RNA sequence: GGAGAUCUUCAGGGCAGGGUGUGAUUCCCUACUGGCGGUAUAGUCCGCGACCCGCUGCGAUAUCAAACAGCGGCUGACUCGGUGCAACUCCGGGACCAACAGUUAAAGUCUGGAUGAAAGAAGAUGAAA
Numbered sequence: 001g002g003a004g005a006u007c008u009u010c011a012g013g014g015c016a017g018g019g020u021g022u023g024a025u026u027c028c029c030u031a032c033u034g035g036c037g038g039u040a041u042a043g044u045c046c047g048c049g050a051c052c053c054g055c056u057g058c059g060a061u062a063u064c065a066a067a068c069a070g071c072g073g074c075u076g077a078c079u080c081g082g083u084g085c086a087a088c089u090c091c092g093g094g095a096c097c098a099a100c101a102g103u104u105a106a107a108g109u110c111u112g113g114a115u116g117a118a119a120g121a122a123g124a125u126g127a128a129a
Stems, first nucleotide, its partner, number of pairs: 005125006017029003031109002033098002035048004043096002052073002078094005100112003